[Rfam]
RNA sequence: GGUAUUGUUUUAUAUCACCCACGAUAAGCCCCGGAAUCUUAUUGUGUAACACGAUAUAGAAGCACGUA
Numbered sequence: 001g002g003u004a005u006u007g008u009u010u011u012a013u014a015u016c017a018c019c020c021a022c023g024a025u026a027a028g029c030c031c032c033g034g035a036a037u038c039u040u041a042u043u044g045u046g047u048a049a050c051a052c053g054a055u056a057u058a059g060a061a062g063c064a065c066g067u068a
Stems, first nucleotide, its partner, number of pairs: 006064003009060004021045008

A member of the RNA family "Ribosomal protein L13 leader" from Staphylococcus saprophyticus, 68 nucleotides long. Rfam describes the family as follows. This family is a putative r-protein leader autoregulatory structure found in B. subtilis and other low-GC Gram-positive bacteria. It is located in the 5' untranslated regions of mRNAs encoding the L13-S9 (rplM-rpsI) ribosomal protein operon. The family's RNA type in Rfam is cis-regulatory leader. The organism belongs to Staphylococcus saprophyticus, within Bacteria.